This 94-nucleotide RNA from Cervus hanglu belongs to the Rfam family "Vault RNA".
Rfam classes the family as a non-coding RNA gene.
Pairs were carried over by alignment from the consensus structure, which is taken from published work.

RNA sequence: GGUCUUUAUAGCUCAGCAGUUCCUUCAACUGCAUCAUGAUUCAAUUACCCUUUCAAGGGUGGUUUGAGACCUGUGGGCACUCUCCAGUCCUUUG
Numbered sequence: 001g002g003u004c005u006u007u008a009u010a011g012c013u014c015a016g017c018a019g020u021u022c023c024u025u026c027a028a029c030u031g032c033a034u035c036a037u038g039a040u041u042c043a044a045u046u047a048c049c050c051u052u053u054c055a056a057g058g059g060u061g062g063u064u065u066g067a068g069a070c071c072u073g074u075g076g077g078c079a080c081u082c083u084c085c086a087g088u089c090c091u092u093u094g
Stems, first nucleotide, its partner, number of pairs: 001085002011078004016074004024068005